[Rfam]
RNA sequence: GGCUCGGAUCUAUGCGAUUACAACGCCUAAACUUUGUCAGGACCGGAAGGUAGCAGCAAUACAGGAUGCUUGCAAUAGGCGUGGACUCCGGGUCACC
Numbered sequence: 001g002g003c004u005c006g007g008a009u010c011u012a013u014g015c016g017a018u019u020a021c022a023a024c025g026c027c028u029a030a031a032c033u034u035u036g037u038c039a040g041g042a043c044c045g046g047a048a049g050g051u052a053g054c055a056g057c058a059a060u061a062c063a064g065g066a067u068g069c070u071u072g073c074a075a076u077a078g079g080c081g082u083g084g085a086c087u088c089c090g091g092g093u094c095a096c097c
Stems, first nucleotide, its partner, number of pairs: 004091005009085006017076003021072002026065003034059004042051003